[Rfam]
RNA: Small nucleolar RNA SNORA71
Organism: Heterocephalus glaber
RNA sequence: UCCUGUAUCCAAAAGUGAUCUUGGGCUGCCUGUGCCUCGAUCAUUGGUAGUUCAGGGAGAGGAACAUUGAAAGACAUUUCCCUCGUGUUCGGAGGGGCCACCUCAUCACUUCUGAACCCUGGAGCUUUCCUACA
Numbered sequence: 001u002c003c004u005g006u007a008u009c010c011a012a013a014a015g016u017g018a019u020c021u022u023g024g025g026c027u028g029c030c031u032g033u034g035c036c037u038c039g040a041u042c043a044u045u046g047g048u049a050g051u052u053c054a055g056g057g058a059g060a061g062g063a064a065c066a067u068u069g070a071a072a073g074a075c076a077u078u079u080c081c082c083u084c085g086u087g088u089u090c091g092g093a094g095g096g097g098c099c100a101c102c103u104c105a106u107c108a109c110u111u112c113u114g115a116a117c118c119c120u121g122g123a124g125c126u127u128u129c130c131u132a133c134a
Stems, first nucleotide, its partner, number of pairs: 001057005007051002014045007023037004066131001069129005087117005092111003096107001